RNA sequence: UGUGCAAGUGACGAUAAAUUAGACAGGGACAUCAGCACUUAUCUAAAGGAUGAUGAUUUGUCUUUGGGAAUCUCUCUGAUGCAUA
Numbered sequence: 001u002g003u004g005c006a007a008g009u010g011a012c013g014a015u016a017a018a019u020u021a022g023a024c025a026g027g028g029a030c031a032u033c034a035g036c037a038c039u040u041a042u043c044u045a046a047a048g049g050a051u052g053a054u055g056a057u058u059u060g061u062c063u064u065u066g067g068g069a070a071u072c073u074c075u076c077u078g079a080u081g082c083a084u085a
Stems, first nucleotide, its partner, number of pairs: 002084005
Annotation
Small nucleolar RNA R44/J54/Z268 family: an 85-nucleotide RNA sequence from Cajanus cajan. Rfam 15.1 lists 1,168 matches to the family in 228 species. Clan: SNORD74 clan. Lineage of the source: Eukaryota > Streptophytina > Gunneridae > Phaseoleae > Cajanus. The base pairs follow the family's consensus structure, which was predicted with PFOLD.